[Rfam]
Nucleotides: 078
Base pairs, nucleotide, nucleotide: 015046016045017044018043019042022078023077024076025075026074027073029041030040031039050067051066052065053064054063055062056061
Number, partner (000 for none) and nucleotide at each position: 001000a002000g003000a004000u005000c006000a007000c008000a009000a010000g011000u012000u013000g014000g015046a016045g017044g018043c019042c020000a021000u022078a023077g024076c025075a026074g027073a028000a029041g030040u031039g032000c033000u034000u035000a036000c037000c038000a039031u040030g041029c042019g043018g044017c045016c046015u047000u048000g049000u050067c051066a052065g053064a054063u055062u056061c057000c058000a059000a060000u061056g062055a063054a064053u065052c066051u067050g068000c069000a070000a071000a072000c073027u074026c075025u076024g077023c078022u